[Rfam]
RNA sequence: GGUUCAAGUGAUGAUGAGAAACUGCAACAAUAUGGCAGGAGUUAUACUCCUGUGAUACGUAGUUUAACGUUUGAUGAUU
Numbered sequence: 001g002g003u004u005c006a007a008g009u010g011a012u013g014a015u016g017a018g019a020a021a022c023u024g025c026a027a028c029a030a031u032a033u034g035g036c037a038g039g040a041g042u043u044a045u046a047c048u049c050c051u052g053u054g055a056u057a058c059g060u061a062g063u064u065u066a067a068c069g070u071u072u073g074a075u076g077a078u079u
Stems, first nucleotide, its partner, number of pairs: 001079002004077003037051005
Notes
This 79-nucleotide sequence from Triticum aestivum belongs to the Rfam family "Small nucleolar RNA Z199". A search with the family's covariance model found it, with a score of 58 bits. The family has 17 seed sequences and 953 matches in Rfam 15.1. The base pairs follow the family's consensus structure, which was predicted with PFOLD. The organism belongs to Triticum, within Eukaryota. Rfam classes the family as a C/D-box small nucleolar RNA. Gene Ontology terms of the family: nucleolus and RNA processing. snoZ199 is a C/D box small nucleolar RNA, which acts as a methylation guide RNA for sites on 18S and 25S rRNA. Rice snoZ199 is reported to be homologous to Arabidopsis snoR13.